[Rfam]
RNA: Small nucleolar RNA snoR74
Organism: Aquilegia coerulea
RNA sequence: CAAAAAGCAGGGUUCCGUUGCCUCUAAGAAUGGAUCUCUCGUAAACUUCAGGGAAAUCAUUUCAUUGUUUUUGGGUGAACCUCUGGACUUAUAAGUACCAAAAGGUUCAGUAAAUGAUGGAACAUUA
Numbered sequence: 001c002a003a004a005a006a007g008c009a010g011g012g013u014u015c016c017g018u019u020g021c022c023u024c025u026a027a028g029a030a031u032g033g034a035u036c037u038c039u040c041g042u043a044a045a046c047u048u049c050a051g052g053g054a055a056a057u058c059a060u061u062u063c064a065u066u067g068u069u070u071u072u073g074g075g076u077g078a079a080c081c082u083c084u085g086g087a088c089u090u091a092u093a094a095g096u097a098c099c100a101a102a103a104g105g106u107u108c109a110g111u112a113a114a115u116g117a118u119g120g121a122a123c124a125u126u127a
Stems, first nucleotide, its partner, number of pairs: 005048003011037002014034004061121009076109007